Rfam assigns this 87-nucleotide RNA sequence from Kluyvera intermedia to the family "CopA-like RNA".
[Rfam]
RNA sequence: AUAGAGCAACAGCUUCUAUACAGUUUAGGUAAGCCCCGGUAAUCUUCUACGUCGCCAAACAUUGAAAGAUUAUCGGGGUUUUGUCUU
Numbered sequence: 001a002u003a004g005a006g007c008a009a010c011a012g013c014u015u016c017u018a019u020a021c022a023g024u025u026u027a028g029g030u031a032a033g034c035c036c037c038g039g040u041a042a043u044c045u046u047c048u049a050c051g052u053c054g055c056c057a058a059a060c061a062u063u064g065a066a067a068g069a070u071u072a073u074c075g076g077g078g079u080u081u082u083g084u085c086u087u
Base pairs, nucleotide, nucleotide: 001019002018003017004016005015027087028086029085031081032080033079034078035077036076037075038074039073040072041071042070043069044068045067046066

Gene Ontology term of the family: mRNA binding. It is annotated as an antisense RNA. Rfam's curators put it in the seed alignment. The source organism's lineage runs through Bacteria, Pseudomonadati, Pseudomonadota, Enterobacteriaceae and Kluyvera. On this family, see Nordgren et al., J Mol Biol 2001: "Real time kinetic studies of the interaction between folded antisense and target RNAs using surface plasmon resonance".